[Rfam]
RNA: SAM riboswitch aptamer (S box leader)
RNA sequence: CUCUUAUCCGGAGUGGUGGAGGGACUAGCCCGAUGAAACCCGGCAACCAGCUAAGCUCGCUAUGAUAUUCAUGGCUGGCACAAGCAUGGUGCUAAUUCUUGCAGGAGAUUCUUCUGGCAGAUAAGAG
Numbered sequence: 001c002u003c004u005u006a007u008c009c010g011g012a013g014u015g016g017u018g019g020a021g022g023g024a025c026u027a028g029c030c031c032g033a034u035g036a037a038a039c040c041c042g043g044c045a046a047c048c049a050g051c052u053a054a055g056c057u058c059g060c061u062a063u064g065a066u067a068u069u070c071a072u073g074g075c076u077g078g079c080a081c082a083a084g085c086a087u088g089g090u091g092c093u094a095a096u097u098c099u100u101g102c103a104g105g106a107g108a109u110u111c112u113u114c115u116g117g118c119a120g121a122u123a124a125g126a127g
Base pairs, nucleotide, nucleotide: 001127002126003125004124005123006122007121008120013041015040016039017038021031022030023029025101027099028098042093043092044091045090047089048088050085051084052083097119102116103115104114105113106112107111